[Rfam]
The family of this 89-nucleotide RNA sequence from Chelonia mydas is "Vault RNA". A reference for the family is Stadler et al. (2009), "Evolution of Vault RNAs", Mol Biol Evol. From the family's description: This family of RNAs are found as part of the enigmatic vault ribonucleoprotein complex.
RNA sequence: GGGCCGGCUCUAGCUCAGCGGUUACUUCUUGACUUACAGCGCCAGCCCCUCCGGGGGUUCGAGACCCGCGGGCGCUAAUCGGCCUUUUG
Numbered sequence: 001g002g003g004c005c006g007g008c009u010c011u012a013g014c015u016c017a018g019c020g021g022u023u024a025c026u027u028c029u030u031g032a033c034u035u036a037c038a039g040c041g042c043c044a045g046c047c048c049c050u051c052c053g054g055g056g057g058u059u060c061g062a063g064a065c066c067c068g069c070g071g072g073c074g075c076u077a078a079u080c081g082g083c084c085u086u087u088u089g
Base pairs, nucleotide, nucleotide: 002084003083004082005081006080007079013073014072015071016070018069019068020067021066026063027062028061
Lineage of the source: Eukaryota > Bilateria > Vertebrata > Gnathostomata > Chelonia.